[Rfam]
RNA sequence: UUGCAGUGAUGACCAUCUUAGGACACCUUUUAGAUGUUAACCAUGAAAAAUAACUAAUCUGAGCAAC
Numbered sequence: 001u002u003g004c005a006g007u008g009a010u011g012a013c014c015a016u017c018u019u020a021g022g023a024c025a026c027c028u029u030u031u032a033g034a035u036g037u038u039a040a041c042c043a044u045g046a047a048a049a050a051u052a053a054c055u056a057a058u059c060u061g062a063g064c065a066a067c
Stems, first nucleotide, its partner, number of pairs: 001066004
The record is a 67-nucleotide sequence from Chiloscyllium punctatum, which matches "Small nucleolar RNA SNORD58" in Rfam. It scores 64 bits against the family's covariance model. Taxonomically the source falls in Chiloscyllium (Eukaryota, Gnathostomata, Selachii, Hemiscylliidae). Gene Ontology terms of the family: nucleolus and RNA processing. The family's RNA type in Rfam is C/D-box small nucleolar RNA. From the family's description: snoRNA U58 is found in introns 1, 3 and 6 of the ribosomal protein RPL17 gene in humans.